[Rfam]
Rfam assigns this 119-nucleotide RNA from Vibrio ostreae to the family "Ribosomal S15 leader". Taxonomically the source falls in Vibrio (Bacteria, Pseudomonadati, Vibrionales, Vibrionaceae). The E. coli Ribosomal S15 gene 5' UTR can form two alternative structures. One that is a series of three hairpins, The other includes a pseudoknot. This structure causes translational regulation of the S15 protein. The alignment of this family contains only the final two hairpins which are conserved in other species, and also includes the complete region that forms the alternate structures. A search with the family's covariance model found it, with a score of 95 bits.
RNA sequence: CGUGUCGGCUGAAUCAGAGAUUGGCGACACAACUAUAAACCUUAACUCUUUAGGAGAGAAUUAUGUCUCUGAAUGCAGAAACUAAAGCAGCAAUCGUUGCUGACUACGCACGUGGCGAA
Number, nucleotide and partner (000 for none) at each position: 001c000002g000003u000004g000005u000006c000007g000008g025009c024010u023011g022012a021013a000014u000015c000016a000017g000018a000019g000020a000021u012022u011023g010024g009025c008026g000027a000028c000029a000030c000031a000032a000033c000034u000035a000036u000037a000038a000039a000040c000041c000042u000043u000044a000045a000046c000047u000048c000049u000050u073051u072052a000053g070054g069055a068056g067057a000058g000059a000060a000061u000062u000063a000064u000065g000066u000067c056068u055069c054070u053071g000072a051073a050074u000075g000076c000077a000078g000079a000080a000081a000082c000083u000084a000085a000086a000087g000088c000089a000090g000091c000092a000093a000094u000095c000096g000097u000098u000099g000100c000101u000102g000103a000104c000105u000106a000107c000108g000109c000110a000111c000112g000113u000114g000115g000116c000117g000118a000119a000